Description
A member of the RNA family "mir-182 microRNA precursor family" from Petromyzon marinus, 75 nucleotides long. Rfam's curators put it in the seed alignment. Its Rfam clan is "mir-182 clan". Taxonomically the source falls in Petromyzon (Eukaryota, Opisthokonta, Eumetazoa, Bilateria). The base pairs follow the family's consensus structure, which was predicted with RNAalifold. A reference for the family is Tesfaye et al. (2009), "Identification and expression profiling of microRNAs during bovine oocyte maturation using heterologous approach", Mol Reprod Dev.
RNA sequence: GACUGUGUUUGGCAAUGGUAGAACUCACACUGGCCAGAGAGCUCUCCGGGGGUUCUAGACUUGCCAAUUACAGUC
Numbered sequence: 001g002a003c004u005g006u007g008u009u010u011g012g013c014a015a016u017g018g019u020a021g022a023a024c025u026c027a028c029a030c031u032g033g034c035c036a037g038a039g040a041g042c043u044c045u046c047c048g049g050g051g052g053u054u055c056u057a058g059a060c061u062u063g064c065c066a067a068u069u070a071c072a073g074u075c
Stems, first nucleotide, its partner, number of pairs: 002074005009067007019057006028051001030049004